[Rfam]
MIR480 microRNA precursor family: a 124-nucleotide sequence from Populus tomentosa. For this family Rfam cites "Novel and mechanical stress-responsive MicroRNAs in Populus trichocarpa that are absent from Arabidopsis" (Lu et al., Plant Cell, 2005). A search with the family's covariance model found it, with a score of 40 bits. The base pairs follow the family's consensus structure, which was predicted with WAR. Rfam 15.1 lists 3,070 matches to the family in 171 species.
RNA sequence: UAGUCUGUAUGAGUUAAAUCUCUAUCUAGUAGUAUUAGAUCCUCUCCUAAAUGCUUAGAACCUGUAGUUUGUACGAGCCUAACUGCAUUAUUUUUUCUACUAGUCAAUCAGGUUAUAUUUAAAU
Number, nucleotide and partner (000 for none) at each position: 001u000002a000003g000004u122005c000006u000007g119008u117009a116010u000011g000012a113013g000014u111015u110016a000017a000018a108019u107020c000021u000022c000023u000024a000025u102026c000027u099028a098029g097030u000031a095032g000033u000034a000035u000036u000037a000038g000039a000040u000041c000042c000043u000044c000045u000046c000047c000048u000049a000050a000051a000052u000053g000054c000055u000056u000057a000058g000059a000060a000061c000062c000063u000064g000065u000066a000067g000068u000069u000070u000071g000072u000073a000074c000075g000076a000077g000078c000079c000080u000081a000082a000083c000084u000085g000086c000087a000088u000089u000090a000091u000092u000093u000094u000095u031096u000097c029098u028099a027100c000101u000102a025103g000104u000105c000106a000107a019108u018109c000110a015111g014112g000113u012114u000115a000116u009117a008118u000119u007120u000121a000122a004123a000124u000